This 52-nucleotide RNA from Paracoccus sphaerophysae belongs to the Rfam family "SAM/SAH riboswitch aptamer". Its family is annotated with regulation of gene expression and S-adenosylmethionine metabolic process in the Gene Ontology.
[Rfam]
RNA sequence: CGGCCCCCACAACGGCUUCCUGGCGUGGCGCGGCCCUGAACCCAAUGGAGCA
Numbered sequence: 001c002g003g004c005c006c007c008c009a010c011a012a013c014g015g016c017u018u019c020c021u022g023g024c025g026u027g028g029c030g031c032g033g034c035c036c037u038g039a040a041c042c043c044a045a046u047g048g049a050g051c052a
Stems, first nucleotide, its partner, number of pairs: 004033002007028004013022002015051003019048002
Record summary
The base pairs follow the family's consensus structure, which is taken from published work. A reference for the family is Weickhmann et al. (2019), "The structure of the SAM/SAH-binding riboswitch", Nucleic Acids Res.